[Rfam]
RNA sequence: CCGCCCCGGCACCGGCCCGGGCGGGCCCUGACACCGGUACCUGACACGGCCGGUGCAG
Numbered sequence: 001c002c003g004c005c006c007c008g009g010c011a012c013c014g015g016c017c018c019g020g021g022c023g024g025g026c027c028c029u030g031a032c033a034c035c036g037g038u039a040c041c042u043g044a045c046a047c048g049g050c051c052g053g054u055g056c057a058g
Stems, first nucleotide, its partner, number of pairs: 001024006008017002028058003032055007
A member of the RNA family "L17-Actino-Proteobacteria ribosomal protein leader" from Streptomyces alkaliphilus, 58 nucleotides long. By type it is a cis-regulatory leader.